[Rfam]
RNA sequence: CCUGUGGAGAGCCAUACAAACGAUAGUAGCCUUUUGGCGAGGUCGGGUUCGUUGAAGCAGGAA
Numbered sequence: 001c002c003u004g005u006g007g008a009g010a011g012c013c014a015u016a017c018a019a020a021c022g023a024u025a026g027u028a029g030c031c032u033u034u035u036g037g038c039g040a041g042g043u044c045g046g047g048u049u050c051g052u053u054g055a056a057g058c059a060g061g062a063a
Stems, first nucleotide, its partner, number of pairs: 001061005009050005021045003029038003
Dot-bracket structure: (((((...(((((.......(((.....(((....)))....))))))))......)))))..
Source information: The record is a 63-nucleotide RNA sequence from Anoxybacillus flavithermus, which matches "RAGATH-18 RNA" in Rfam. It is one of the family's seed sequences. Actinobacteria, Firmicutes, Fusobacteria, Thermotogae (1 example).